[Rfam]
Nucleotides: 090
Stems, first nucleotide, its partner, number of pairs: 002089006
Number, partner (000 for none) and nucleotide at each position: 001000u002089a003088u004087g005086g006085a007084u008000c009000g010000g011000u012000g013000a014000u015000g016000u017000u018000a019000g020000u021000u022000a023000u024000a025000a026000a027000c028000u029000g030000c031000g032000u033000u034000a035000u036000c037000u038000a039000u040000c041000u042000g043000a044000a045000g046000c047000u048000u049000c050000c051000u052000a053000a054000a055000g056000g057000a058000a059000u060000u061000g062000c063000a064000g065000a066000u067000a068000a069000c070000c071000a072000u073000a074000u075000a076000u077000u078000g079000c080000u081000g082000a083000g084007a085006u086005c087004c088003a089002u090000u